The record is a 93-nucleotide RNA sequence from Neotamlana nanhaiensis, which matches "TPP riboswitch aptamer (THI element)" in Rfam.
The match comes from Rfam's covariance-model search (64 bits).
The base pairs follow the family's consensus structure, which is taken from published work.
RNA sequence: CUGAAUUGUUAGGGGUGCCUAAAAUUGGCUGAGAUUAUACCCUAUGAACCUGAGAUGUUUAAUAACAGCGGAGGGAAACGAGGAUUGUAACAC
Numbered sequence: 001c002u003g004a005a006u007u008g009u010u011a012g013g014g015g016u017g018c019c020u021a022a023a024a025u026u027g028g029c030u031g032a033g034a035u036u037a038u039a040c041c042c043u044a045u046g047a048a049c050c051u052g053a054g055a056u057g058u059u060u061a062a063u064a065a066c067a068g069c070g071g072a073g074g075g076a077a078a079c080g081a082g083g084a085u086u087g088u089a090a091c092a093c
Base pairs, nucleotide, nucleotide: 006081007080008079009078010077011043012042013041014040016037017029018028019027021025049074050073051072056067057066058065